[Rfam]
RNA sequence: UUGAAUAUUCGCGGGAGCUUGCAGAAGCAGGCUGAGAGUACGGCUGAUCCGUCGUAGACCGUUUAAACCUGUUGGGUAAUGCCAUCGUAGGAAGAAUGCGUAUUUUUUGC
Numbered sequence: 001u002u003g004a005a006u007a008u009u010c011g012c013g014g015g016a017g018c019u020u021g022c023a024g025a026a027g028c029a030g031g032c033u034g035a036g037a038g039u040a041c042g043g044c045u046g047a048u049c050c051g052u053c054g055u056a057g058a059c060c061g062u063u064u065a066a067a068c069c070u071g072u073u074g075g076g077u078a079a080u081g082c083c084a085u086c087g088u089a090g091g092a093a094g095a096a097u098g099c100g101u102a103u104u105u106u107u108u109g110c
Stems, first nucleotide, its partner, number of pairs: 006098005011062004017032005039056005068091004073084003
Rfam assigns this 110-nucleotide sequence from Cohnella thailandensis to the family "TPP riboswitch aptamer (THI element)". The family's consensus secondary structure is taken from published work.